[Rfam]
RNA sequence: CACAGUUCGAGCUUGAAUUGCGUUUCGUAGGUUACGUCUACGUUAAAACGUUACAGUUAAAUAUAACUGCUAAAAACGAAAACAACUCUUACGCUUUAGCUGCCUAAAAACAGUUAGCGUAGAUCCUCUCGGCAUCGCCCAUGUGCUCGAGUAAGGGUCUCAAAUUUAGUGGGAUACGUUAAACUUUUCCGUCUGUAAAGUUUAAAAGAGAUCAUCAGACUAGCAAUACAGAAUGCCUGUCACUCGGCAAGCUGUAAAGCGAAACCUCAAAUGAGUUGACUAUGAACGUAGAUUUUUAAGUGUCGAUGUG
Numbered sequence: 001c002a003c004a005g006u007u008c009g010a011g012c013u014u015g016a017a018u019u020g021c022g023u024u025u026c027g028u029a030g031g032u033u034a035c036g037u038c039u040a041c042g043u044u045a046a047a048a049c050g051u052u053a054c055a056g057u058u059a060a061a062u063a064u065a066a067c068u069g070c071u072a073a074a075a076a077c078g079a080a081a082a083c084a085a086c087u088c089u090u091a092c093g094c095u096u097u098a099g100c101u102g103c104c105u106a107a108a109a110a111c112a113g114u115u116a117g118c119g120u121a122g123a124u125c126c127u128c129u130c131g132g133c134a135u136c137g138c139c140c141a142u143g144u145g146c147u148c149g150a151g152u153a154a155g156g157g158u159c160u161c162a163a164a165u166u167u168a169g170u171g172g173g174a175u176a177c178g179u180u181a182a183a184c185u186u187u188u189c190c191g192u193c194u195g196u197a198a199a200g201u202u203u204a205a206a207a208g209a210g211a212u213c214a215u216c217a218g219a220c221u222a223g224c225a226a227u228a229c230a231g232a233a234u235g236c237c238u239g240u241c242a243c244u245c246g247g248c249a250a251g252c253u254g255u256a257a258a259g260c261g262a263a264a265c266c267u268c269a270a271a272u273g274a275g276u277u278g279a280c281u282a283u284g285a286a287c288g289u290a291g292a293u294u295u296u297u298a299a300g301u302g303u304c305g306a307u308g309u310g
Base pairs, nucleotide, nucleotide: 001310002309003308004307009303011301012300013299014298015297016296017295021288022287023286024285025284026042027041028040029039030038031054032053034051035050036049037048096117097116098115099114100113101112102111122159123158124157125156126155127154128151129150130149131148132146133145134144135143138173139172140171141170142169179205180204181203182202183201184200185199186198187197191220192219193218194217195216223260224259227256228255229254230253231252235248236247237246239280240279241278242277244274245273
The family of this 310-nucleotide RNA from Enterococcus durans is "transfer-messenger RNA".
Pairs were carried over by alignment from the consensus structure, which is taken from published work.
Taxonomically the source falls in Enterococcus (Bacteria, Bacillati, Bacillota, Lactobacillales).
A reference for the family is Laslett et al. (2002), "BRUCE: a program for the detection of transfer-messenger RNA genes in nucleotide sequences", Nucleic Acids Res.